[Rfam]
RNA: U11 spliceosomal RNA
RNA sequence: CAAAAGGGCCUUCGCCGAGCAUGGCGACCGAUCCCUUUGUGGUCGGACGGAAUGGUGAUCAAUACAUUCCGAAGGCAAAAUCUUUGGCAAAGGGGCAGCUGGCCAUUGAAGCUGGCGCCUCG
Numbered sequence: 001c002a003a004a005a006g007g008g009c010c011u012u013c014g015c016c017g018a019g020c021a022u023g024g025c026g027a028c029c030g031a032u033c034c035c036u037u038u039g040u041g042g043u044c045g046g047a048c049g050g051a052a053u054g055g056u057g058a059u060c061a062a063u064a065c066a067u068u069c070c071g072a073a074g075g076c077a078a079a080a081u082c083u084u085u086g087g088c089a090a091a092g093g094g095g096c097a098g099c100u101g102g103c104c105a106u107u108g109a110a111g112c113u114g115g116c117g118c119c120u121c122g
Stems, first nucleotide, its partner, number of pairs: 008076005013026005028046006048071007093120004098116005104111001
Dot-bracket structure: .......((((((((((....))))).((((((.......)))))).(((((((..........))))))))))))................((((.(((((.(......))))))))))..